[Rfam]
RNA sequence: UCCAGUGGUAGUCAACUGUCCAGAGCAGUACUGUGCCUGUGAUAGCGUUACACUGCUGGGAGAUAAAAGAUCAGUCAUUUCUUCUGGCUGCUGUUGUCACCGAUCUGGAGACAGCUGGUACCAAAAAGAAGUGGCAUUGUGCUUCCCUGAGAGUGCACUAAAGGUUUGCUUUCCCUCUUUAGUGCUAGUCUGGAAGCAUACAAU
Numbered sequence: 001u002c003c004a005g006u007g008g009u010a011g012u013c014a015a016c017u018g019u020c021c022a023g024a025g026c027a028g029u030a031c032u033g034u035g036c037c038u039g040u041g042a043u044a045g046c047g048u049u050a051c052a053c054u055g056c057u058g059g060g061a062g063a064u065a066a067a068a069g070a071u072c073a074g075u076c077a078u079u080u081c082u083u084c085u086g087g088c089u090g091c092u093g094u095u096g097u098c099a100c101c102g103a104u105c106u107g108g109a110g111a112c113a114g115c116u117g118g119u120a121c122c123a124a125a126a127a128g129a130a131g132u133g134g135c136a137u138u139g140u141g142c143u144u145c146c147c148u149g150a151g152a153g154u155g156c157a158c159u160a161a162a163g164g165u166u167u168g169c170u171u172u173c174c175c176u177c178u179u180u181a182g183u184g185c186u187a188g189u190c191u192g193g194a195a196g197c198a199u200a201c202a203a204u
Stems, first nucleotide, its partner, number of pairs: 001060009011051002016045005021039003068137001071134003075129002083125001085123003088118001091117001093115001095113004100108002139199008155185003159181006
Overview:
A member of the RNA family "Small nucleolar RNA SNORA74" from Podiceps cristatus, 204 nucleotides long. Rfam links the family to the GO terms RNA processing and nucleolus. Lineage of the source: Eukaryota > Metazoa > Sauria > Archosauria > Podiceps. The family has 24 seed sequences and 1,348 matches in Rfam 15.1. From the family's description: U19 belongs to the H/ACA class of snoRNAs. snoRNAs bind a number of proteins (including dyskerin, Gar1p and Nop10p in the case of the H/ACA class) to form snoRNP complexes. This class are thought to guide the sites of modification of uridines to pseudouridines by forming direct base pairing interactions with substrate RNAs. By type it is an H/ACA-box small nucleolar RNA. Pairs were carried over by alignment from the consensus structure, which was predicted with PFOLD. Its Rfam clan is "SNORA74 clan".